This 76-nucleotide RNA from Syntrophotalea acetylenica belongs to the Rfam family "c-di-GMP-I-GGC riboswitch aptamer". A search with the family's covariance model found it, with a score of 68 bits. Rfam 15.1 lists 1,298 matches to the family in 717 species. The family's consensus secondary structure is taken from published work. On this family, see Smith et al., Biochemistry 2010: "Structural and biochemical determinants of ligand binding by the c-di-GMP riboswitch ". The organism belongs to Syntrophotalea, within Bacteria.

[Rfam]
RNA sequence: UCCGAUAAUGGCAAAACCGGGGCAACCCGGUGACGCAAAGCCACGGAUCCCGAAAGGGAUAGCCGGGUUACCGAAG
Numbered sequence: 001u002c003c004g005a006u007a008a009u010g011g012c013a014a015a016a017c018c019g020g021g022g023c024a025a026c027c028c029g030g031u032g033a034c035g036c037a038a039a040g041c042c043a044c045g046g047a048u049c050c051c052g053a054a055a056g057g058g059a060u061a062g063c064c065g066g067g068u069u070a071c072c073g074a075a076g
Base pairs, nucleotide, nucleotide: 001076003073004072011036012035016031017030018029019028020027021026034062039069040068041067042066044065045064046063047060048059049058